[Rfam]
Rfam assigns this 140-nucleotide sequence from Pipistrellus kuhlii to the family "Small Cajal body specific RNA 21". Rfam classes the family as a small Cajal body RNA. The base pairs follow the family's consensus structure, which was predicted with RNAalifold. For this family Rfam cites "Cajal body-specific small nuclear RNAs: a novel class of 2'-O-methylation and pseudouridylation guide RNAs" (Darzacq et al., EMBO J, 2002). Rfam 15.1 lists 278 matches to the family in 138 species. NCBI's taxonomy places the organism under Eukaryota, Deuterostomia, Yangochiroptera, Vespertilionidae, Pipistrellus. Rfam's curators write: scaRNAs are a specific class of small nuclear RNAs which localise to the Cajal bodies and guide the modification of RNA polymerase II transcribed spliceosomal RNAs U1, U2, U4, U5 and U12.

RNA sequence: UGGCUCGGUUUCCUGGGAGGUGGGCUUAGCCUGACCCACCUUCCCUCAGACGAGCCAAGAGUAGAGAGGCUGGGCGUCCUUCCUCCUGGGAGAGGUGGCUAAGAAAGGAACCUCACCUAGACUGUCCUUGCCUCACAUUU
Numbered sequence: 001u002g003g004c005u006c007g008g009u010u011u012c013c014u015g016g017g018a019g020g021u022g023g024g025c026u027u028a029g030c031c032u033g034a035c036c037c038a039c040c041u042u043c044c045c046u047c048a049g050a051c052g053a054g055c056c057a058a059g060a061g062u063a064g065a066g067a068g069g070c071u072g073g074g075c076g077u078c079c080u081u082c083c084u085c086c087u088g089g090g091a092g093a094g095g096u097g098g099c100u101a102a103g104a105a106a107g108g109a110a111c112c113u114c115a116c117c118u119a120g121a122c123u124g125u126c127c128u129u130g131c132c133u134c135a136c137a138u139u140u
Stems, first nucleotide, its partner, number of pairs: 002056006015044010066134005072128003079120002088113003
Dot-bracket structure: .((((((.......((((((((((..........))))))))))......)))))).........(((((.(((....((.......(((....................))).....)).....))).)))))......